[Rfam]
RNA sequence: CAGACUGUUGUCAAUGAUGAAACGUAACAAAGCUGAAAUUAAUGAUUUAAUUCAGUUUCUUCGUCACUACCACAGAGACAACAGAUGG
Numbered sequence: 001c002a003g004a005c006u007g008u009u010g011u012c013a014a015u016g017a018u019g020a021a022a023c024g025u026a027a028c029a030a031a032g033c034u035g036a037a038a039u040u041a042a043u044g045a046u047u048u049a050a051u052u053c054a055g056u057u058u059c060u061u062c063g064u065c066a067c068u069a070c071c072a073c074a075g076a077g078a079c080a081a082c083a084g085a086u087g088g
Base pairs, nucleotide, nucleotide: 001088003086005084006083007082008081009080010079011078012077
Dot-bracket structure: (.(.((((((((................................................................)))))))).).)